[Rfam]
A member of the RNA family "Archaeal large subunit ribosomal RNA" from Methanobacterium alkalithermotolerans, 272 nucleotides of a longer RNA. NCBI's taxonomy places the organism under Archaea, Methanobacteria, Methanobacteriales, Methanobacteriaceae, Methanobacterium. The literature on the family includes a 2001 paper in Science by Yusupov et al., "Crystal structure of the ribosome at 5.5 A resolution". It scores 2822 bits against the family's covariance model. Its family is annotated with structural constituent of ribosome and ribosome in the Gene Ontology.
RNA sequence: GAGUUUGUUGUUGUGGCGAGACUAAAAAGUUUUGAUCUUUGUAGUCAUAGGGAAACCAAUAGGUCCGCAGCAUAAUUUGUUUUAUGUGAGGGACAGGGUCUUAAUAGGGCCUGUAGUCACAGCGAUAAAACCCGAAGCCGGUCGAUCUAUCCCUGGGUAGGAUGAAGUCGCUCUUACGAGUGAUGGAGGUCCGCAGAGGUGUUGUCGUGCAAAACACUCUUCUGACCUGGGGUUAGUGGUGAAAGGCCAAUCAAGGCCGGUGACAGCUGGUU
Numbered sequence: 001g002a003g004u005u006u007g008u009u010g011u012u013g014u015g016g017c018g019a020g021a022c023u024a025a026a027a028a029g030u031u032u033u034g035a036u037c038u039u040u041g042u043a044g045u046c047a048u049a050g051g052g053a054a055a056c057c058a059a060u061a062g063g064u065c066c067g068c069a070g071c072a073u074a075a076u077u078u079g080u081u082u083u084a085u086g087u088g089a090g091g092g093a094c095a096g097g098g099u100c101u102u103a104a105u106a107g108g109g110c111c112u113g114u115a116g117u118c119a120c121a122g123c124g125a126u127a128a129a130a131c132c133c134g135a136a137g138c139c140g141g142u143c144g145a146u147c148u149a150u151c152c153c154u155g156g157g158u159a160g161g162a163u164g165a166a167g168u169c170g171c172u173c174u175u176a177c178g179a180g181u182g183a184u185g186g187a188g189g190u191c192c193g194c195a196g197a198g199g200u201g202u203u204g205u206c207g208u209g210c211a212a213a214a215c216a217c218u219c220u221u222c223u224g225a226c227c228u229g230g231g232g233u234u235a236g237u238g239g240u241g242a243a244a245g246g247c248c249a250a251u252c253a254a255g256g257c258c259g260g261u262g263a264c265a266g267c268u269g270g271u272u
Base pairs, nucleotide, nucleotide: 005128006127007126008125009124010123011122012121013120014119015118016117017116020046021045022044023043026040027039028038029037050057051056063094064093065092066091070087071086072085073084074083075082097111098110099109100108131270132269134267138260139259140258141257142256143255147236148235149234151232152231153230154229155228156227157226158224160192161191162190163189167184168183169182170181171180172179173178196221197220198219199218201217202216204215205214238248239247240246